[Rfam]
RNA sequence: UGGUAGAUGCACCCUGAUGUCCUCCCCGGCGGAUUCCGCUGGGGAUUUUUUUG
Numbered sequence: 001u002g003g004u005a006g007a008u009g010c011a012c013c014c015u016g017a018u019g020u021c022c023u024c025c026c027c028g029g030c031g032g033a034u035u036c037c038g039c040u041g042g043g044g045a046u047u048u049u050u051u052u053g
Base pairs, nucleotide, nucleotide: 002013003012004011023045024044025043026042027041028040029039030038031037032036

Nitrogen stress-induced RNA 1: a 53-nucleotide sequence from Leptolyngbya sp. Heron Island J. The source organism's lineage runs through Bacteria, Cyanobacteriota, Leptolyngbyales, Leptolyngbyaceae and Leptolyngbya. Rfam 15.1 lists 962 matches to the family in 163 species. The family's RNA type in Rfam is small RNA. A reference for the family is Ionescu et al. (2010), "Heterocyst-specific transcription of NsiR1, a non-coding RNA encoded in a tandem array of direct repeats in cyanobacteria", J Mol Biol.